Annotation:
Sense overlapping transcript RNA 2652 (sot): a 182-nucleotide sequence from Natronomonas pharaonis. By type it is a small RNA. It scores 62 bits against the family's covariance model. The family's consensus secondary structure was predicted with RNAfold. On this family, see Gomes-Filho et al., RNA Biol 2015: "Sense overlapping transcripts in IS1341-type transposase genes are functional non-coding RNAs in archaea". Rfam's curators write: It is associated with IS1341-type transposase (tnpB) genes, at the 3'-end in H. salinarum NRC-1. The tetraloop structural motif may be functional. Taxonomically the source falls in Natronomonas pharaonis (Archaea, Methanobacteriota, Halobacteria, Halobacteriales).
[Rfam]
RNA sequence: AUGUGCCUGCUCUCAACAGCCUUCCACAAGUUCGGAAGGUGCGACGGCAGGCAUCGGGCUGUGUGAACCAGCCGACCGUGACCCACGACACCGCUACAGGUCAUCAAGCCGAUGGUGUCGUGGGUGUGUCAGACUAAUCCACGGGAAGCCACGGGCCACCGCGCCCGUGGCAGUUCACUUUG
Numbered sequence: 001a002u003g004u005g006c007c008u009g010c011u012c013u014c015a016a017c018a019g020c021c022u023u024c025c026a027c028a029a030g031u032u033c034g035g036a037a038g039g040u041g042c043g044a045c046g047g048c049a050g051g052c053a054u055c056g057g058g059c060u061g062u063g064u065g066a067a068c069c070a071g072c073c074g075a076c077c078g079u080g081a082c083c084c085a086c087g088a089c090a091c092c093g094c095u096a097c098a099g100g101u102c103a104u105c106a107a108g109c110c111g112a113u114g115g116u117g118u119c120g121u122g123g124g125u126g127u128g129u130c131a132g133a134c135u136a137a138u139c140c141a142c143g144g145g146a147a148g149c150c151a152c153g154g155g156c157c158a159c160c161g162c163g164c165c166c167g168u169g170g171c172a173g174u175u176c177a178c179u180u181u182g
Base pairs, nucleotide, nucleotide: 005052006051007050008049009048010047013044014043020039021038022037023036024035025034054075057073058072059071060070061069062067109182112181114179115178116177117176118133119132121131122130123129148171149170150169151168152167153166154165155164156163